[Rfam]
RNA sequence: GAGUUGUUGUCGUAAUAGUAAUUCAACUCAGUACGAGAGGAACUGUUGAUUCAGAUAAUUGGUAUUUGCCCUUGGUUGAGCAGCCAGUGGGGCGAAGCUACCAUCUGUUGGAUUAUAGCUGAACGCCUCUAAGUUAGAAUCCAUGCUAGAAAACGACAAUAUUUUUUUCUUAUCCACGUUUAGUUGUUAAUACAAAUAGAGUUCUUUGAACUCCAGAAUCAUACCAGGAUGGCAAUCUUUUUAGGACCCUAAAGUUGGUUCUAUUAAGUGCUGUCGAAGUAUAAUUCCCAAAUGUUGGAUAGGUUAAAUCCUUUGCAGACGACUUAAAUAUGGAACGGGGUAUUGUAAGCAGUAGAGUAGCCUUGUUGCUACGAUCUGCUGAGAUUAAGCCUUUGUUUUGUAGAUUUGU
Numbered sequence: 001g002a003g004u005u006g007u008u009g010u011c012g013u014a015a016u017a018g019u020a021a022u023u024c025a026a027c028u029c030a031g032u033a034c035g036a037g038a039g040g041a042a043c044u045g046u047u048g049a050u051u052c053a054g055a056u057a058a059u060u061g062g063u064a065u066u067u068g069c070c071c072u073u074g075g076u077u078g079a080g081c082a083g084c085c086a087g088u089g090g091g092g093c094g095a096a097g098c099u100a101c102c103a104u105c106u107g108u109u110g111g112a113u114u115a116u117a118g119c120u121g122a123a124c125g126c127c128u129c130u131a132a133g134u135u136a137g138a139a140u141c142c143a144u145g146c147u148a149g150a151a152a153a154c155g156a157c158a159a160u161a162u163u164u165u166u167u168u169c170u171u172a173u174c175c176a177c178g179u180u181u182a183g184u185u186g187u188u189a190a191u192a193c194a195a196a197u198a199g200a201g202u203u204c205u206u207u208g209a210a211c212u213c214c215a216g217a218a219u220c221a222u223a224c225c226a227g228g229a230u231g232g233c234a235a236u237c238u239u240u241u242u243a244g245g246a247c248c249c250u251a252a253a254g255u256u257g258g259u260u261c262u263a264u265u266a267a268g269u270g271c272u273g274u275c276g277a278a279g280u281a282u283a284a285u286u287c288c289c290a291a292a293u294g295u296u297g298g299a300u301a302g303g304u305u306a307a308a309u310c311c312u313u314u315g316c317a318g319a320c321g322a323c324u325u326a327a328a329u330a331u332g333g334a335a336c337g338g339g340g341u342a343u344u345g346u347a348a349g350c351a352g353u354a355g356a357g358u359a360g361c362c363u364u365g366u367u368g369c370u371a372c373g374a375u376c377u378g379c380u381g382a383g384a385u386u387a388a389g390c391c392u393u394u395g396u397u398u399u400g401u402a403g404a405u406u407u408g409u
Stems, first nucleotide, its partner, number of pairs: 006160008016148004021051001023049005052107005060100003067094005072087006109143003116136005170302007306407005312326001315323001332399006338392003342385002349379004354375001357372005

The record is a 409-nucleotide part of an RNA from Zancudomyces culisetae, which matches "Eukaryotic large subunit ribosomal RNA" in Rfam. For this family Rfam cites "Crystal structure of the ribosome at 5.5 A resolution" (Yusupov et al., Science, 2001).